[Rfam]
RNA sequence: GGCCUUUUCGUGUUUGGUGAUUGAACUUGGAUUUUGUUCUAUAUACAUAUAUAAAAAUAUGUAAAUCUGUUCAUUCCUCGACACUAGAAGUUC
Numbered sequence: 001g002g003c004c005u006u007u008u009c010g011u012g013u014u015u016g017g018u019g020a021u022u023g024a025a026c027u028u029g030g031a032u033u034u035u036g037u038u039c040u041a042u043a044u045a046c047a048u049a050u051a052u053a054a055a056a057a058u059a060u061g062u063a064a065a066u067c068u069g070u071u072c073a074u075u076c077c078u079c080g081a082c083a084c085u086a087g088a089a090g091u092u093c
Stems, first nucleotide, its partner, number of pairs: 002092001004090005010084003014081004019076001022073005029068006
RNA: mir-973 microRNA precursor family